RNA: MIR390 microRNA precursor family
Organism: Brassica carinata
RNA sequence: GAGAAGUAGCUGUAAAGCUCAGGAGGGAUAGCACCAUAACUCACCGAUGCUAUAUAUAUGUUUGCAUAUGUAUAUCGGCGCUAUCCAUCCUGAGUUCUAUGCCUUCUUCUU
Numbered sequence: 001g002a003g004a005a006g007u008a009g010c011u012g013u014a015a016a017g018c019u020c021a022g023g024a025g026g027g028a029u030a031g032c033a034c035c036a037u038a039a040c041u042c043a044c045c046g047a048u049g050c051u052a053u054a055u056a057u058a059u060g061u062u063u064g065c066a067u068a069u070g071u072a073u074a075u076c077g078g079c080g081c082u083a084u085c086c087a088u089c090c091u092g093a094g095u096u097c098u099a100u101g102c103c104u105u106c107u108u109c110u111u
Stems, first nucleotide, its partner, number of pairs: 016096009026086007034078002